[Rfam]
A member of the RNA family "mir-187 microRNA precursor family" from Gouania willdenowi, 85 nucleotides long. Its family is annotated with miRNA-mediated post-transcriptional gene silencing and RISC complex in the Gene Ontology.
RNA sequence: UCGGCUGGGCCAAGGGCUGCAACACAGGACAUGGGUUCUGUUGUUCCCCUCCGCUCGUGUCUUGUGUUGCAGCCAGUGGUGCUUC
Numbered sequence: 001u002c003g004g005c006u007g008g009g010c011c012a013a014g015g016g017c018u019g020c021a022a023c024a025c026a027g028g029a030c031a032u033g034g035g036u037u038c039u040g041u042u043g044u045u046c047c048c049c050u051c052c053g054c055u056c057g058u059g060u061c062u063u064g065u066g067u068u069g070c071a072g073c074c075a076g077u078g079g080u081g082c083u084u085c
Stems, first nucleotide, its partner, number of pairs: 011078002015074004020069011032057004
Dot-bracket structure: ..........((..((((.(((((((((((.((((..................)))).))))))))))).))))..)).......

Rfam 15.1 lists 636 matches to the family in 622 species.